[Rfam]
RNA sequence: UUCUCGCGGACGCGAGAGUCUCUGCCUACCUAUGGAUGAUGUUUAUGGUAAGUCAAGUUGAGGCGGCUCUGU
Numbered sequence: 001u002u003c004u005c006g007c008g009g010a011c012g013c014g015a016g017a018g019u020c021u022c023u024g025c026c027u028a029c030c031u032a033u034g035g036a037u038g039a040u041g042u043u044u045a046u047g048g049u050a051a052g053u054c055a056a057g058u059u060g061a062g063g064c065g066g067c068u069c070u071g072u
Stems, first nucleotide, its partner, number of pairs: 006023001008021004024067002027065001029063003034058001037055002

Annotation:
The record is a 72-nucleotide RNA from Orthohepacivirus hominis, which matches "Hepatitis C virus stem-loop SL2531 and SL2549AU" in Rfam. The family's RNA type in Rfam is cis-regulatory element. The literature on the family includes a 2016 paper in Mol Cell by Pirakitikulr et al., "The Coding Region of the HCV Genome Contains a Network of Regulatory RNA Structures". The sequence is in the family's curated seed alignment.